[Rfam]
RNA sequence: UAUGCAUUGGUGGGGUCCCUCAGCCUGGCCUGCAUCCUCUCGCAAUCCAGGAUCCCUUGGGGGCUGUCGGACUGCCAGUUUCAGGACCGAUCCUCGCAGGCCAGGCCGAGGGACCCCACCGGUGCACA
Numbered sequence: 001u002a003u004g005c006a007u008u009g010g011u012g013g014g015g016u017c018c019c020u021c022a023g024c025c026u027g028g029c030c031u032g033c034a035u036c037c038u039c040u041c042g043c044a045a046u047c048c049a050g051g052a053u054c055c056c057u058u059g060g061g062g063g064c065u066g067u068c069g070g071a072c073u074g075c076c077a078g079u080u081u082c083a084g085g086a087c088c089g090a091u092c093c094u095c096g097c098a099g100g101c102c103a104g105g106c107c108g109a110g111g112g113a114c115c116c117c118a119c120c121g122g123u124g125c126a127c128a
Stems, first nucleotide, its partner, number of pairs: 003126002006123001008121003012117010023106003027102007

Rfam assigns this 128-nucleotide RNA from Cnephaeus nilssonii to the family "mir-9193 microRNA precursor family". Lineage of the source: Eukaryota > Amniota > Laurasiatheria > Yangochiroptera > Cnephaeus. Pairs were carried over by alignment from the consensus structure, which was predicted with RNAalifold. Gene Ontology terms of the family: miRNA-mediated post-transcriptional gene silencing and RISC complex.